[Rfam]
RNA sequence: UAUAAGAACUCUUGCAGCCUUAGAUGUUAUAAAAAAAUAUACACCUGAAUUGUAAGAGUUAUUAGUAC
Numbered sequence: 001u002a003u004a005a006g007a008a009c010u011c012u013u014g015c016a017g018c019c020u021u022a023g024a025u026g027u028u029a030u031a032a033a034a035a036a037a038u039a040u041a042c043a044c045c046u047g048a049a050u051u052g053u054a055a056g057a058g059u060u061a062u063u064a065g066u067a068c
Stems, first nucleotide, its partner, number of pairs: 004063002007060011020048004025043003029040003